Rfam assigns this 127-nucleotide sequence from Tetzosporium hominis to the family "FMN riboswitch aptamer (RFN element)". Lineage of the source: Bacteria > Bacillati > Caryophanales > Caryophanaceae > Tetzosporium. The match comes from Rfam's covariance-model search (118 bits). The base pairs follow the family's consensus structure, which is taken from published work.
[Rfam]
RNA sequence: AUUCAUCUUCGGGGCAGGGGGCAAUUCCCGACCGGCGGAAAUGACGAAAGUCUAGCCCGCGAGCCGCAAGGCAGAUUCUGGUGUGAUUCCAGAGCCGACAGUAUAGUCUGGAUGGGAGAAGGUGAAG
Numbered sequence: 001a002u003u004c005a006u007c008u009u010c011g012g013g014g015c016a017g018g019g020g021g022c023a024a025u026u027c028c029c030g031a032c033c034g035g036c037g038g039a040a041a042u043g044a045c046g047a048a049a050g051u052c053u054a055g056c057c058c059g060c061g062a063g064c065c066g067c068a069a070g071g072c073a074g075a076u077u078c079u080g081g082u083g084u085g086a087u088u089c090c091a092g093a094g095c096c097g098a099c100a101g102u103a104u105a106g107u108c109u110g111g112a113u114g115g116g117a118g119a120a121g122g123u124g125a126a127g
Base pairs, nucleotide, nucleotide: 003125004124005123006122007121008120009119010118017029018028019027031107032106033097034096035060036059037058038057055095056094063072064071065070077093078092079091080090081089099110100109101108